[Rfam]
RNA: MIR1507 microRNA precursor family
RNA sequence: CGCUGUUUGGUAGAGAUGUAUGGAACGAGAGAUGGGAACGGUGGGUGGUGGUUUUUUCCACCGAGUUCCUUUACUUCCCUCCCUCGUUCCAUACAUCAUCUAACAAACACGGU
Numbered sequence: 001c002g003c004u005g006u007u008u009g010g011u012a013g014a015g016a017u018g019u020a021u022g023g024a025a026c027g028a029g030a031g032a033u034g035g036g037a038a039c040g041g042u043g044g045g046u047g048g049u050g051g052u053u054u055u056u057u058c059c060a061c062c063g064a065g066u067u068c069c070u071u072u073a074c075u076u077c078c079c080u081c082c083c084u085c086g087u088u089c090c091a092u093a094c095a096u097c098a099u100c101u102a103a104c105a106a107a108c109a110c111g112g113u
Base pairs, nucleotide, nucleotide: 005108006107007106008105009104011102012101013100014099015097016096017095018094019093020092021091022090023089024088025087026086027085028084029083031081032080034079035078036077037076038075